[Rfam]
RNA sequence: UGCCGAUGAUGCAAGUGUUUUGUUGGGAAGUGCUUGCGGAGGCUCUAAUAGGGUUGUGCGGUAUCCAGGUUCCAACUAGGCUUUGGCCGAAUGUAAAAACGCUCAGA
Numbered sequence: 001u002g003c004c005g006a007u008g009a010u011g012c013a014a015g016u017g018u019u020u021u022g023u024u025g026g027g028a029a030g031u032g033c034u035u036g037c038g039g040a041g042g043c044u045c046u047a048a049u050a051g052g053g054u055u056g057u058g059c060g061g062u063a064u065c066c067a068g069g070u071u072c073c074a075a076c077u078a079g080g081c082u083u084u085g086g087c088c089g090a091a092u093g094u095a096a097a098a099a100c101g102c103u104c105a106g107a
Stems, first nucleotide, its partner, number of pairs: 002043003011037011023075004058102003079088003
Shown here is a 107-nucleotide sequence, a member of the family "drum RNA". Firmicutes, Bacteroidetes (1 example), Proteobacteria (2 examples), Spirochaetes (2 examples).